Shown here is a 95-nucleotide RNA sequence, a member of the family "DUF3800-V RNA".
Rfam's curators put it in the seed alignment.

RNA sequence: UGGAGCUGGUAAUAAUAAGCUAUAUGUGCCUAGAUGCUCCUGAGUGGUUCACUCAGUCCGAGUCUAGGAACAACACAUAUAGCACCGCCGCUCCU
Numbered sequence: 001u002g003g004a005g006c007u008g009g010u011a012a013u014a015a016u017a018a019g020c021u022a023u024a025u026g027u028g029c030c031u032a033g034a035u036g037c038u039c040c041u042g043a044g045u046g047g048u049u050c051a052c053u054c055a056g057u058c059c060g061a062g063u064c065u066a067g068g069a070a071c072a073a074c075a076c077a078u079a080u081a082g083c084a085c086c087g088c089c090g091c092u093c094c095u
Base pairs, nucleotide, nucleotide: 002094003093004092005091006090009088010087024078025077026076027075028074029068030067031066032065033064034063035062040056041055042054043053044052045051
Overview: Rfam classes the family as a small RNA.